Notes: Shown here is a 72-nucleotide RNA from Parasphaerochaeta coccoides, a member of the family "tRNA". The family's RNA type in Rfam is transfer RNA. Its family is annotated with triplet codon-amino acid adaptor activity in the Gene Ontology. The organism belongs to Parasphaerochaeta coccoides, within Bacteria. A search with the family's covariance model found it, with a score of 64 bits.
RNA sequence: GGUGCCGUACCCAAGCGGUAAGGGAAAGGUCUGCAAAACCUUCAUUCAGCGGUUCGAAUCCGCUCGGCACCU
Numbered sequence: 001g002g003u004g005c006c007g008u009a010c011c012c013a014a015g016c017g018g019u020a021a022g023g024g025a026a027a028g029g030u031c032u033g034c035a036a037a038a039c040c041u042u043c044a045u046u047c048a049g050c051g052g053u054u055c056g057a058a059u060c061c062g063c064u065c066g067g068c069a070c071c072u
Stems, first nucleotide, its partner, number of pairs: 001071007010024003026042005048064005